[Rfam]
RNA sequence: UGGCAUGUUGGACAGGCAUUCUGUAUCUCUUGAAAGAGCAUGGAUUUAUCCAUACUAGACGACAUGAGUGAAAUGAGAAGUUCUCGGGGCUGCCAACCUUUCAGUUAAGGUUUUGUGGCAGUAUACUUCUUCUACAAUA
Numbered sequence: 001u002g003g004c005a006u007g008u009u010g011g012a013c014a015g016g017c018a019u020u021c022u023g024u025a026u027c028u029c030u031u032g033a034a035a036g037a038g039c040a041u042g043g044a045u046u047u048a049u050c051c052a053u054a055c056u057a058g059a060c061g062a063c064a065u066g067a068g069u070g071a072a073a074u075g076a077g078a079a080g081u082u083c084u085c086g087g088g089g090c091u092g093c094c095a096a097c098c099u100u101u102c103a104g105u106u107a108a109g110g111u112u113u114u115g116u117g118g119c120a121g122u123a124u125a126c127u128u129c130u131u132c133u134a135c136a137a138u139a
Base pairs, nucleotide, nucleotide: 003060006057007056017042018041019040021038022037024035077132078131079130080129089119090118093115095112096111097110098109099108100107
RNA: Small nucleolar RNA U109
Organism: Ictidomys tridecemlineatus